[Rfam]
The family of this 169-nucleotide RNA from Caldicellulosiruptor owensensis is "glmS glucosamine-6-phosphate activated ribozyme aptamer". Taxonomically the source falls in Caldicellulosiruptor owensensis (Bacteria, Bacillati, Bacillota, Caldicellulosiruptorales). A search with the family's covariance model found it, with a score of 93 bits.
RNA sequence: UUUUCUUCAAAAGCGCCAGGACCCUUGAUAAAGAUCAAGGGUUGACGAGGACUGGGGAGAAUCGAGGUUUUCGGCGGAUGCCCCAGCGGGGUUUGGCCUUUUUCCUCGUAACUUUCUGCUACAAACCCCGGAAGGCAACUUCUGGGACAAAGGCAGGAAGAAAAAAGGC
Numbered sequence: 001u002u003u004u005c006u007u008c009a010a011a012a013g014c015g016c017c018a019g020g021a022c023c024c025u026u027g028a029u030a031a032a033g034a035u036c037a038a039g040g041g042u043u044g045a046c047g048a049g050g051a052c053u054g055g056g057g058a059g060a061a062u063c064g065a066g067g068u069u070u071u072c073g074g075c076g077g078a079u080g081c082c083c084c085a086g087c088g089g090g091g092u093u094u095g096g097c098c099u100u101u102u103u104c105c106u107c108g109u110a111a112c113u114u115u116c117u118g119c120u121a122c123a124a125a126c127c128c129c130g131g132a133a134g135g136c137a138a139c140u141u142c143u144g145g146g147a148c149a150a151a152g153g154c155a156g157g158a159a160g161a162a163a164a165a166a167g168g169c
Stems, first nucleotide, its partner, number of pairs: 020043008029034001053086001054084004062074004087108005113159007128145007
About the family: This entry contains a glucosamine-6-phosphate activated ribozyme that is found in the mRNA for GlmS. GlmS is an enzyme that uses fructose-6-phosphate and glutamine to generate glucosamine-6-phosphate. The ribozyme catalyses self cleavage of the glmS mRNA that is thought to regulate GlmS activity. Pairs were carried over by alignment from the consensus structure, which is taken from published work.